RNA sequence: CUCUGCCAUAUUGUCCUGUCACAGCAGUAUUGUACCUGUCUACUGCUGCGUCCGGACAAGUUGGUGGAG
Numbered sequence: 001c002u003c004u005g006c007c008a009u010a011u012u013g014u015c016c017u018g019u020c021a022c023a024g025c026a027g028u029a030u031u032g033u034a035c036c037u038g039u040c041u042a043c044u045g046c047u048g049c050g051u052c053c054g055g056a057c058a059a060g061u062u063g064g065u066g067g068a069g
Stems, first nucleotide, its partner, number of pairs: 003067004012058005018052001022048008
Overview: The record is a 69-nucleotide sequence from Galleria mellonella, which matches "mir-1000 microRNA precursor family" in Rfam. Rfam 15.1 lists 152 matches to the family in 150 species. Taxonomically the source falls in Galleria (Eukaryota, Mandibulata, Ditrysia, Pyralidae). Pairs were carried over by alignment from the consensus structure, which was predicted with RNAalifold.